[Rfam]
RNA sequence: UAAAAAAGAAUAGAUUUGCCGUAGAUAGUGGGUGCGAAAGCUUAAUAUCCCGCCGAGGUUUUAGAUAAAUUGAGAUUACUAAAGCUUUUGAUGUCUACUUUUGGCAACAAAAGCUUUUUAUAAUGUUGC
Numbered sequence: 001u002a003a004a005a006a007a008g009a010a011u012a013g014a015u016u017u018g019c020c021g022u023a024g025a026u027a028g029u030g031g032g033u034g035c036g037a038a039a040g041c042u043u044a045a046u047a048u049c050c051c052g053c054c055g056a057g058g059u060u061u062u063a064g065a066u067a068a069a070u071u072g073a074g075a076u077u078a079c080u081a082a083a084g085c086u087u088u089u090g091a092u093g094u095c096u097a098c099u100u101u102u103g104g105c106a107a108c109a110a111a112a113g114c115u116u117u118u119u120a121u122a123a124u125g126u127u128g129c
Base pairs, nucleotide, nucleotide: 028053029052030051031050032049034041035040084114085113086112087111088110089109090108092106093105094104095103
The family of this 129-nucleotide RNA sequence from Clostridioides difficile is "Ribosomal protein L10 leader". It is one of the family's seed sequences. Rfam links the family to the GO term regulation of gene expression. Rfam describes the family as follows. This family is a putative r-protein leader autoregulatory structure found in B. subtilis and other low-GC Gram-positive bacteria. It is located in the 5' untranslated regions of mRNAs encoding ribosomal proteins L10 and L12 (rplJ-rplL). A Rho-independent transcription terminator structure that is probably involved in regulation is included at the 3' end.